Plant signal recognition particle RNA: a 276-nucleotide RNA from Salix brachista. On this family, see Regalia et al., Nucleic Acids Res 2002: "Prediction of signal recognition particle RNA genes". Lineage of the source: Eukaryota > Embryophyta > Pentapetalae > Salicaceae > Salix. The family is grouped with related families in Rfam's "SRP clan".
RNA sequence: GCCGAGCCAAGUGGAGGCGUGAGGGUCAAGGAACGUUAAUUCUGUUCAGGUGACCGGGUCUUGUUUGGCUAAUUUCUGGCCUGCCCGUUCCAAGCCAAGAGCUGAGCCGUGUGAUCCAGGCAAAGGCGUGGAUCACUCGGCUCCUAGAGCUGAGGGCAAUGCGUGAGGCUGGUUUCACAGAGCAGCGAUUACCUCACUCUCCUGGCAGUGGAAGGAGGCCGGUGCCACCUGGACUCAUAUGGUCUGAUGUUCAGAUCUAACUGAACCUUCACUUUU
Numbered sequence: 001g002c003c004g005a006g007c008c009a010a011g012u013g014g015a016g017g018c019g020u021g022a023g024g025g026u027c028a029a030g031g032a033a034c035g036u037u038a039a040u041u042c043u044g045u046u047c048a049g050g051u052g053a054c055c056g057g058g059u060c061u062u063g064u065u066u067g068g069c070u071a072a073u074u075u076c077u078g079g080c081c082u083g084c085c086c087g088u089u090c091c092a093a094g095c096c097a098a099g100a101g102c103u104g105a106g107c108c109g110u111g112u113g114a115u116c117c118a119g120g121c122a123a124a125g126g127c128g129u130g131g132a133u134c135a136c137u138c139g140g141c142u143c144c145u146a147g148a149g150c151u152g153a154g155g156g157c158a159a160u161g162c163g164u165g166a167g168g169c170u171g172g173u174u175u176c177a178c179a180g181a182g183c184a185g186c187g188a189u190u191a192c193c194u195c196a197c198u199c200u201c202c203u204g205g206c207a208g209u210g211g212a213a214g215g216a217g218g219c220c221g222g223u224g225c226c227a228c229c230u231g232g233a234c235u236c237a238u239a240u241g242g243u244c245u246g247a248u249g250u251u252c253a254g255a256u257c258u259a260a261c262u263g264a265a266c267c268u269u270c271a272c273u274u275u276u
Base pairs, nucleotide, nucleotide: 007014008013021276022275023274024273025272026271028269029268030267031266034263035262036260037259038258039256040255041254044251047249048248052244053243054242055241056236057235058234059233060232061231063229066227067226068225070224071223076222077221078220079219080218081217082216085215086214088213089212090211091210092209094206095205096204097203099201100200101199104143105142106141107140108139109138111136112135113134114133115132116131117130118129120127121126144149151196152195153194154193155192162187163186164185169180170179171178